[Rfam]
RNA sequence: GGUACAAGCCGUCUUAUCGCGCCUAGCCGGUCCACUGGAUCGGAUCGGGUGAGGAAAGUCCGGGCAGCAUAGAGCACCAUACUUCCUAACGGGAAGGCGGAUUCCUGGCGACGGGAAUUCGACAGCCAGUGUCACAGAAAAUAUACCGCCGGUUUAAAGAGUGAAAGAGUGAAUUAAUGAAAGAGCGAAGUGGCUCAAUUGGACUUUUUCGCUCAUUCACUCUUUCGCUCUUUAGACCGGUAAGGGUGAAAUGGUGGGGUAAGAGCCCACCGCCCGGCGGGUGACCGGCGGGGCAGGACAAACCUUAUGGGCUGAAAGACCAAAUAGGCGUCGGAUGCGAGGCUGCUCGUCUCCGUUCCGAUUCAUUCCUUCGGGAACGAUCCGGAUGCCGGCGCGGGUAGGUCGAACGAGGUGGUUGGUGACGACCAUCCCAGAUAAAUGAUAAGACGCCGGGCAGUUAGCUGCCCGGUGACAGAACCCGGCUUACAGGCUUGUACCGUCG
Numbered sequence: 001g002g003u004a005c006a007a008g009c010c011g012u013c014u015u016a017u018c019g020c021g022c023c024u025a026g027c028c029g030g031u032c033c034a035c036u037g038g039a040u041c042g043g044a045u046c047g048g049g050u051g052a053g054g055a056a057a058g059u060c061c062g063g064g065c066a067g068c069a070u071a072g073a074g075c076a077c078c079a080u081a082c083u084u085c086c087u088a089a090c091g092g093g094a095a096g097g098c099g100g101a102u103u104c105c106u107g108g109c110g111a112c113g114g115g116a117a118u119u120c121g122a123c124a125g126c127c128a129g130u131g132u133c134a135c136a137g138a139a140a141a142u143a144u145a146c147c148g149c150c151g152g153u154u155u156a157a158a159g160a161g162u163g164a165a166a167g168a169g170u171g172a173a174u175u176a177a178u179g180a181a182a183g184a185g186c187g188a189a190g191u192g193g194c195u196c197a198a199u200u201g202g203a204c205u206u207u208u209u210c211g212c213u214c215a216u217u218c219a220c221u222c223u224u225u226c227g228c229u230c231u232u233u234a235g236a237c238c239g240g241u242a243a244g245g246g247u248g249a250a251a252u253g254g255u256g257g258g259g260u261a262a263g264a265g266c267c268c269a270c271c272g273c274c275c276g277g278c279g280g281g282u283g284a285c286c287g288g289c290g291g292g293g294c295a296g297g298a299c300a301a302a303c304c305u306u307a308u309g310g311g312c313u314g315a316a317a318g319a320c321c322a323a324a325u326a327g328g329c330g331u332c333g334g335a336u337g338c339g340a341g342g343c344u345g346c347u348c349g350u351c352u353c354c355g356u357u358c359c360g361a362u363u364c365a366u367u368c369c370u371u372c373g374g375g376a377a378c379g380a381u382c383c384g385g386a387u388g389c390c391g392g393c394g395c396g397g398g399u400a401g402g403u404c405g406a407a408c409g410a411g412g413u414g415g416u417u418g419g420u421g422a423c424g425a426c427c428a429u430c431c432c433a434g435a436u437a438a439a440u441g442a443u444a445a446g447a448c449g450c451c452g453g454g455c456a457g458u459u460a461g462c463u464g465c466c467c468g469g470u471g472a473c474a475g476a477a478c479c480c481g482g483c484u485u486a487c488a489g490g491c492u493u494g495u496a497c498c499g500u501c502g
Stems, first nucleotide, its partner, number of pairs: 001498010011487001012447007020051005026045001028043001056485003060482005065314004074378001077310005082096005097123001098121010124305002129303002131299003146245002148241027253271006272294001273292004278287003318404004328395006411430008
The family of this 502-nucleotide RNA from Fibrisoma limi is "Bacterial RNase P class A". A search with the family's covariance model found it, with a score of 267 bits.